[Rfam]
RNA sequence: GUGCACCAAUACCUUGGCUCUAGACUGCUUACUGCUAAAAGUGCUCCAAAGUACAGUAACAGUCUACAGUCAUGGCUACUGACGCCUG
Numbered sequence: 001g002u003g004c005a006c007c008a009a010u011a012c013c014u015u016g017g018c019u020c021u022a023g024a025c026u027g028c029u030u031a032c033u034g035c036u037a038a039a040a041g042u043g044c045u046c047c048a049a050a051g052u053a054c055a056g057u058a059a060c061a062g063u064c065u066a067c068a069g070u071c072a073u074g075g076c077u078a079c080u081g082a083c084g085c086c087u088g
Stems, first nucleotide, its partner, number of pairs: 012075002015072004023064005029059005
A member of the RNA family "mir-132 microRNA precursor family" from Oryzias javanicus, 88 nucleotides long. Pairs were carried over by alignment from the consensus structure, which was predicted with RNAalifold. For this family Rfam cites "The developmental miRNA profiles of zebrafish as determined by small RNA cloning" (Chen et al., Genes Dev, 2005). The organism belongs to Oryzias, within Eukaryota. A search with the family's covariance model found it, with a score of 70 bits.